[Rfam]
RNA sequence: GGCUGGUUUGAGUACAGUGGUAUUUACAACUAAUUAAUUUUUUUUUGUUCUUUCUCCACUGCCACUGCUUCACUUGACUAUCCUUUA
Numbered sequence: 001g002g003c004u005g006g007u008u009u010g011a012g013u014a015c016a017g018u019g020g021u022a023u024u025u026a027c028a029a030c031u032a033a034u035u036a037a038u039u040u041u042u043u044u045u046u047g048u049u050c051u052u053u054c055u056c057c058a059c060u061g062c063c064a065c066u067g068c069u070u071c072a073c074u075u076g077a078c079u080a081u082c083c084u085u086u087a
Base pairs, nucleotide, nucleotide: 001083002082004080005079006078007077008076010075011074016066017065018064019063020062021061028049029048030047032045033044
RNA: Y RNA